[Rfam]
RNA sequence: CACAAUAGCUACGGGAAAAGCUCAAGGGUGGUCGGCAUUUUACCCCUAAAAGAGAGGGGAUGAUGCCGAUGACGGUAUUUCAAGCAUUGAUGUUUGCACUCACUUUCGCAAGUCUCAUUGUUUCGAUACUGUCAUAUCACCAAAGAAAAUAAUCCACCCUUGAGUUAACGAGACCGGGUGGAUUAUGGAUUCUUUCUGCCUUGUCGAUCCCCCUUGAAGGGAACCGUCUAUUGUAUAGUCGAAGGUGUUGCCGCACCUUCG
Numbered sequence: 001c002a003c004a005a006u007a008g009c010u011a012c013g014g015g016a017a018a019a020g021c022u023c024a025a026g027g028g029u030g031g032u033c034g035g036c037a038u039u040u041u042a043c044c045c046c047u048a049a050a051a052g053a054g055a056g057g058g059g060a061u062g063a064u065g066c067c068g069a070u071g072a073c074g075g076u077a078u079u080u081c082a083a084g085c086a087u088u089g090a091u092g093u094u095u096g097c098a099c100u101c102a103c104u105u106u107c108g109c110a111a112g113u114c115u116c117a118u119u120g121u122u123u124c125g126a127u128a129c130u131g132u133c134a135u136a137u138c139a140c141c142a143a144a145g146a147a148a149a150u151a152a153u154c155c156a157c158c159c160u161u162g163a164g165u166u167a168a169c170g171a172g173a174c175c176g177g178g179u180g181g182a183u184u185a186u187g188g189a190u191u192c193u194u195u196c197u198g199c200c201u202u203g204u205c206g207a208u209c210c211c212c213c214u215u216g217a218a219g220g221g222a223a224c225c226g227u228c229u230a231u232u233g234u235a236u237a238g239u240c241g242a243a244g245g246u247g248u249u250g251c252c253g254c255a256c257c258u259u260c261g
Stems, first nucleotide, its partner, number of pairs: 002234004007229002021164008030154003040063003043059005071133007084099001107125002110122001176199001210221003240261009